[Rfam]
RNA: UnaL2 LINE 3' element
Organism: Hucho hucho
RNA sequence: UGCACACAUUACUGUAAGUUGCUUUGGAUAAAGUUUCUGCUAAAUGGCAUAUA
Numbered sequence: 001u002g003c004a005c006a007c008a009u010u011a012c013u014g015u016a017a018g019u020u021g022c023u024u025u026g027g028a029u030a031a032a033g034u035u036u037c038u039g040c041u042a043a044a045u046g047g048c049a050u051a052u053a
Stems, first nucleotide, its partner, number of pairs: 013042001014040003021034005